[Rfam]
RNA sequence: AAACUGCGAUGAACCGGGAGAUUGCGGGCGUUUGCCCGGUAACUUCCGGGGAGUAUGUCCGAAAAUCGGGCGG
Dot-bracket structure: .............(((.(((....(((((....))))).....))))))......((((((.....)))))).